The family of this 130-nucleotide sequence from Centaurea solstitialis is "Small nucleolar RNA snoR111". Lineage of the source: Eukaryota > eudicotyledons > Carduoideae > Centaureinae > Centaurea. The family's RNA type in Rfam is H/ACA-box small nucleolar RNA. The literature on the family includes a 2002 paper in Curr Biol by Marker et al., "Experimental RNomics: identification of 140 candidates for small non-messenger RNAs in the plant Arabidopsis thaliana".
RNA sequence: AUGAAUAUUGAGAGACAUGGACAAUUUGUCUUUAUCAUUUCGACAACAGAAGGAUAAAGUAAAGAUGGCGUGAUAUAUCGUUUCAGUCGUCAUUUUUUCUAUUGACGAUCUGAUUGUUACUCGUCCACAU
Numbered sequence: 001a002u003g004a005a006u007a008u009u010g011a012g013a014g015a016c017a018u019g020g021a022c023a024a025u026u027u028g029u030c031u032u033u034a035u036c037a038u039u040u041c042g043a044c045a046a047c048a049g050a051a052g053g054a055u056a057a058a059g060u061a062a063a064g065a066u067g068g069c070g071u072g073a074u075a076u077a078u079c080g081u082u083u084c085a086g087u088c089g090u091c092a093u094u095u096u097u098u099c100u101a102u103u104g105a106c107g108a109u110c111u112g113a114u115u116g117u118u119a120c121u122c123g124u125c126c127a128c129a130u
Base pairs, nucleotide, nucleotide: 005040007038008037010035012032013031014030015029016028017027067126068125070122072120077114078113079112080111086109087108088107089106090105091104092103094101